[Rfam]
RNA sequence: CGAGCUGGCCGGACAAUCGCUGUCGCUCUGCUUUCGGGUGGGGCGGUGGAGGAAAGUCCGGGCUCCAUAGGGUGGGACGCCAGGUAACGCCUGGGAGGCGCGAGCCUACGGAAAGUGCAGCAGAAAGGUAGACCGCCGAUGGCCCGCGAAAGCGGGCACAGGUAAGGGUGAAACGGUGCGGUAAGAGCGCACCGCGCAGCUGGCAACAGUCUGCGGCGAUGGUAAACCCCGUCCGGAGCAAGACCAAAUAGGCCCCCUACAGGUGUGACCCGCACUGGGGGCGGGUAGGUCGCUUGAGGUGUGUGGCGACACACAUCCCAGAUGAAUGAUUGUCCUCGACAGAACCCGGCUUACAGGCCAGCUCGACAA
Dot-bracket structure: ((((((((((((((((((.((((((((((((......))))))))))))....[[[.[[[[[((((...[[[[.((((((((((.....)))))(((((....)))).)((...((((..............(((((..((.(...........).))..)))..)).......((((((.......))))))(((((((((....))).))))).)....))..)))))))))))))...((((......((((((....(((((.]]]]))))))))))).....))))......((((((((....))))))))..........)))))))..........]]]]]]]].).))))))))))....